[Rfam]
RNA sequence: GCAGGUCGACCCUCCACUCGGAUCGUCCGGCACGUUCCUGCCGGUGAAGGGAAGUGGCA
Numbered sequence: 001g002c003a004g005g006u007c008g009a010c011c012c013u014c015c016a017c018u019c020g021g022a023u024c025g026u027c028c029g030g031c032a033c034g035u036u037c038c039u040g041c042c043g044g045u046g047a048a049g050g051g052a053a054g055u056g057g058c059a
Base pairs, nucleotide, nucleotide: 010051011050012049013048015046016045027044028043029042030041031040032039

Shown here is a 59-nucleotide sequence from Kineosporia babensis, a member of the family "msiK RNA".
It is annotated as a cis-regulatory element.
The match comes from Rfam's covariance-model search (53 bits).
The family has 120 seed sequences and 1,374 matches in Rfam 15.1.
Pairs were carried over by alignment from the consensus structure, which is taken from published work.